[Rfam]
RNA sequence: GCCUUUGGUUCUGUUUGGGCUUGUUCUAGGUACGGUCUCAGGGAUCCCAGAUCAAACCAGGCCCCUGGGCCUAUCCUAGAACCAACCUAAAC
Numbered sequence: 001g002c003c004u005u006u007g008g009u010u011c012u013g014u015u016u017g018g019g020c021u022u023g024u025u026c027u028a029g030g031u032a033c034g035g036u037c038u039c040a041g042g043g044a045u046c047c048c049a050g051a052u053c054a055a056a057c058c059a060g061g062c063c064c065c066u067g068g069g070c071c072u073a074u075c076c077u078a079g080a081a082c083c084a085a086c087c088u089a090a091a092c
Base pairs, nucleotide, nucleotide: 015090016089017088018087019086021084023082024081025080026079027078028077029076030075032074034072035071037069038068039067040066041065042064043063047061048060